[Rfam]
RNA sequence: UGGCGAUGAUGAUAACUAAAUGGUUUCGCAAUAUUUUAUCCACUGAAAUUAUAUGAUGAAUUUCUUGACUGUCUGAGCCA
Numbered sequence: 001u002g003g004c005g006a007u008g009a010u011g012a013u014a015a016c017u018a019a020a021u022g023g024u025u026u027c028g029c030a031a032u033a034u035u036u037u038a039u040c041c042a043c044u045g046a047a048a049u050u051a052u053a054u055g056a057u058g059a060a061u062u063u064c065u066u067g068a069c070u071g072u073c074u075g076a077g078c079c080a
Stems, first nucleotide, its partner, number of pairs: 001080004

Rfam assigns this 80-nucleotide RNA from Didymodactylos carnosus to the family "Small nucleolar RNA SNORD53/SNORD92". Gene Ontology terms of the family: nucleolus and RNA processing. The match comes from Rfam's covariance-model search (53 bits). The organism belongs to Didymodactylos, within Eukaryota. Pairs were carried over by alignment from the consensus structure. The family is grouped with related families in Rfam's "SNORD52 clan". The literature on the family includes a 2001 paper in EMBO J by Huttenhofer et al., "RNomics: an experimental approach that identifies 201 candidates for novel, small, non-messenger RNAs in mouse". By type it is a C/D-box small nucleolar RNA.